[Rfam]
RNA sequence: GUCGAAGCGGGAGAUGGCAUUCCUCCCCGUUGCAACCGCCGCAAGGCUGAUGAUGCCUACCGAACG
Numbered sequence: 001g002u003c004g005a006a007g008c009g010g011g012a013g014a015u016g017g018c019a020u021u022c023c024u025c026c027c028c029g030u031u032g033c034a035a036c037c038g039c040c041g042c043a044a045g046g047c048u049g050a051u052g053a054u055g056c057c058u059a060c061c062g063a064a065c066g
Stems, first nucleotide, its partner, number of pairs: 010026004016057006038047003
RNA: Fluoride riboswitch aptamer (crcB RNA motif)
Organism: Thermomonas haemolytica